[Rfam]
RNA sequence: GGAUCAAUGAUGAGUACUUUAUAUUGACUUGAGGAAUGAUGAUGACUUCAAUAUCAAGUACAAUGACAUGAUGCUGAGGCCC
Dot-bracket structure: ((.(((.((..............................................................)).))..).))
This 82-nucleotide sequence from Carlito syrichta belongs to the Rfam family "Small nucleolar RNA SNORD115".
The family's RNA type in Rfam is C/D-box small nucleolar RNA.
The organism belongs to Carlito, within Eukaryota.
Rfam links the family to the GO terms RNA processing and nucleolus.
The family's consensus secondary structure was predicted with PFOLD.
For this family Rfam cites "Identification of brain-specific and imprinted small nucleolar RNA genes exhibiting an unusual genomic organization" (Cavaille et al., Proc Natl Acad Sci U S A, 2000).